[Rfam]
RNA sequence: UCAUCACCAUCACCAUCCUGAGUAGUCUUUCGGGAGAGUUGGUUUCGACUGGAAGACGAGGAAAGUUCUUCCACGGUCAGUAAAGCGAACACAAGUUUCAGACCCCCGGAAGAGCACCUUCCGGGGGUUUUUACUU
Dot-bracket structure: ........(.((.(..(((((........)))))...).))...).(..(((((((..........))))))))......................(..(((((((((((((.....)))))))))))))..)...